[Rfam]
RNA sequence: ACGGAACACGGACGCUGAGAUCCUCGGGCACCAGCUACACGGUCGCCCAUCGCGUCGAAGGGGCAUCCCUCAGGGGCACACCCGACGGCUCGAUGGCUCGAGGGGAGCGAGUGGCGAGACCGGCCGUGAGAUGA
Numbered sequence: 001a002c003g004g005a006a007c008a009c010g011g012a013c014g015c016u017g018a019g020a021u022c023c024u025c026g027g028g029c030a031c032c033a034g035c036u037a038c039a040c041g042g043u044c045g046c047c048c049a050u051c052g053c054g055u056c057g058a059a060g061g062g063g064c065a066u067c068c069c070u071c072a073g074g075g076g077c078a079c080a081c082c083c084g085a086c087g088g089c090u091c092g093a094u095g096g097c098u099c100g101a102g103g104g105g106a107g108c109g110a111g112u113g114g115c116g117a118g119a120c121c122g123g124c125c126g127u128g129a130g131a132u133g134a
Base pairs, nucleotide, nucleotide: 002133003132007128008127009126010125011124013109014108015107022103023102024101025100026099027098028097029096041121042120043117044116045115046114047113

About this RNA
The family of this 134-nucleotide RNA sequence is "c-di-GMP-II-GAG riboswitch aptamer". The family's consensus secondary structure is taken from published work. It is one of the family's seed sequences. Its family is annotated with regulation of gene expression and cyclic-di-GMP binding in the Gene Ontology.